Rfam assigns this 140-nucleotide RNA sequence from Lactococcus hircilactis to the family "PyrR binding site".

RNA sequence: AAACCCUUUAAAUGAGUCCAGAGAGGCUUGUAAGGCGCAAAAAAGAUAGAAUUUCACAGCGGAUAGCUCUUUUUAAAGGGCUGUCAGUACUGACAGAAAUUUUGAUGCACUUACAGCUUCUUUGUAAGUGCAUUUUUGUU
Numbered sequence: 001a002a003a004c005c006c007u008u009u010a011a012a013u014g015a016g017u018c019c020a021g022a023g024a025g026g027c028u029u030g031u032a033a034g035g036c037g038c039a040a041a042a043a044a045g046a047u048a049g050a051a052u053u054u055c056a057c058a059g060c061g062g063a064u065a066g067c068u069c070u071u072u073u074u075a076a077a078g079g080g081c082u083g084u085c086a087g088u089a090c091u092g093a094c095a096g097a098a099a100u101u102u103u104g105a106u107g108c109a110c111u112u113a114c115a116g117c118u119u120c121u122u123u124g125u126a127a128g129u130g131c132a133u134u135u136u137u138g139u140u
Base pairs, nucleotide, nucleotide: 005035006034007033008032013030014029015028016027017026018025059088060087062085063084064083065082066081067080068079069078070077071076104134105133106132107131108130109129110128111127112126113125114124115123116122
Dot-bracket structure: ....((((....((((((......)))))).)))).......................((.((((((((((....)))))))))).))...............(((((((((((((.....)))))))))))))......
The match comes from Rfam's covariance-model search (56 bits). Taxonomically the source falls in Lactococcus (Bacteria, Bacillati, Lactobacillales, Streptococcaceae). For this family Rfam cites "Molecular recognition of pyr mRNA by the Bacillus subtilis attenuation regulatory protein PyrR" (Bonner et al., Nucleic Acids Res, 2001).